Annotation
The record is a 190-nucleotide sequence from Saccharomyces mikatae, which matches "Small nucleolar RNA snR32" in Rfam. The literature on the family includes a 1993 paper in Nucleic Acids Res by Balakin et al., "SnR31, snR32, and snR33: three novel, non-essential snRNAs from Saccharomyces cerevisiae". NCBI's taxonomy places the organism under Eukaryota, Fungi, Dikarya, Ascomycota, Saccharomyces mikatae. The base pairs follow the family's consensus structure, which was predicted with WAR. Rfam links the family to the GO terms RNA processing and nucleolus.

[Rfam]
RNA sequence: AACAUCAUAAUUAUAUCGCGAUUGUACCACUAGUAUAUGCAACUUUUCUUAAGAUUGUAGGGAAAGGCUAACCGAACCAUACUUUUCCCAUUUUAAGUGGUACUAAAGCGUAGAUAGAAUGAACGUUGCUGGGCGCCUGAUGUUGAUUAUUUUUAAAAUGAGACAUUGGGAAUCAGCUGUAUCUACAUUU
Numbered sequence: 001a002a003c004a005u006c007a008u009a010a011u012u013a014u015a016u017c018g019c020g021a022u023u024g025u026a027c028c029a030c031u032a033g034u035a036u037a038u039g040c041a042a043c044u045u046u047u048c049u050u051a052a053g054a055u056u057g058u059a060g061g062g063a064a065a066g067g068c069u070a071a072c073c074g075a076a077c078c079a080u081a082c083u084u085u086u087c088c089c090a091u092u093u094u095a096a097g098u099g100g101u102a103c104u105a106a107a108g109c110g111u112a113g114a115u116a117g118a119a120u121g122a123a124c125g126u127u128g129c130u131g132g133g134c135g136c137c138u139g140a141u142g143u144u145g146a147u148u149a150u151u152u153u154u155a156a157a158a159u160g161a162g163a164c165a166u167u168g169g170g171a172a173u174c175a176g177c178u179g180u181a182u183c184u185a186c187a188u189u190u
Base pairs, nucleotide, nucleotide: 017110018109019108024103025102026101027100028099029098030097031096038059039058040057041056044053045052046051060089061088062087063086064085066083067082121183122182123180124179125178136170137169140166141165142164143163144162147161148160149159150158151157